Small nucleolar RNA SNORD27: a 78-nucleotide RNA from Blastobotrys ciferrii. The source organism's lineage runs through Eukaryota, Opisthokonta, Fungi, saccharomyceta and Blastobotrys. For this family Rfam cites "A mammalian gene with introns instead of exons generating stable RNA products" (Tycowski et al., Nature, 1996).

[Rfam]
RNA sequence: AGGCAAUGAUGAAAUAUCAAAAUAAAAGACAAGCAUAUGUCUGAAUCAUUUUGAUGAAAACUUUUGAUGUCUGAGCCU
Numbered sequence: 001a002g003g004c005a006a007u008g009a010u011g012a013a014a015u016a017u018c019a020a021a022a023u024a025a026a027a028g029a030c031a032a033g034c035a036u037a038u039g040u041c042u043g044a045a046u047c048a049u050u051u052u053g054a055u056g057a058a059a060a061c062u063u064u065u066g067a068u069g070u071c072u073g074a075g076c077c078u
Base pairs, nucleotide, nucleotide: 001078002077003076004075
Rfam classes the family as a C/D-box small nucleolar RNA.